[Rfam]
RNA sequence: AUAAACUGUCGAGAACCAUUUGAAUCAUUACACUACUUGAUUCAAAUGGUUCUCACAAA
Dot-bracket structure: ..........(((((((((((((((((..........))))))))))))))))).....
RNA: Plastid-ccsA-ndhD-1 3UTR RNA